[Rfam]
Nucleotides: 061
Stems, first nucleotide, its partner, number of pairs: 001057014016042001018037001021036005
Number, partner (000 for none) and nucleotide at each position: 001057a002056a003055a004054a005053a006052g007051g008050a009049g010048c011047a012046a013045u014044a015000a016042c017000g018037c019000c020000c021036u022035c023034u024033u025032g026000u027000u028000u029000u030000a031000u032025c033024a034023a035022g036021a037018g038000g039000g040000a041000a042016g043000c044014u045013a046012u047011u048010g049009c050008u051007c052006c053005u054004u055003u056002u057001u058000u059000u060000a061000g
Rfam assigns this 61-nucleotide RNA sequence from Helianthus annuus to the family "Plastid-psbA-2 3UTR RNA". Rfam's curators write: Plastid psbA-2 is a non-coding RNA (ncRNA) present in plastids. Taxonomically the source falls in Helianthus (Eukaryota, Viridiplantae, Spermatophyta, Gunneridae). Clan: Plastid-psbA 3UTR RNA clan. The literature on the family includes a 2023 paper in Plant Commun by Richter et al., "Retrograde signaling in plants: A critical review focusing on the GUN pathway and beyond". By type it is a cis-regulatory element.